[Rfam]
RNA: Small nucleolar RNA R11/Z151
Organism: Zingiber officinale
RNA sequence: UGGCUGAUGAUGAGUGAUCUUUAAGAUCUUAGCGGAUUUCAGUGAGGCUUUCUGGUCUAUGAUCUUUCCACUGUUGUUACACACACUGAAGCCU
Number, nucleotide and partner (000 for none) at each position: 001u000002g093003g092004c091005u090006g000007a000008u000009g000010a000011u000012g000013a000014g000015u000016g000017a000018u000019c000020u000021u000022u000023a000024a000025g000026a000027u000028c000029u000030u000031a000032g000033c000034g000035g000036a000037u000038u000039u000040c000041a000042g000043u000044g000045a000046g000047g000048c000049u000050u000051u000052c000053u000054g000055g000056u000057c000058u000059a000060u000061g000062a000063u000064c000065u000066u000067u000068c000069c000070a000071c000072u000073g000074u000075u000076g000077u000078u000079a000080c000081a000082c000083a000084c000085a000086c000087u000088g000089a000090a005091g004092c003093c002094u000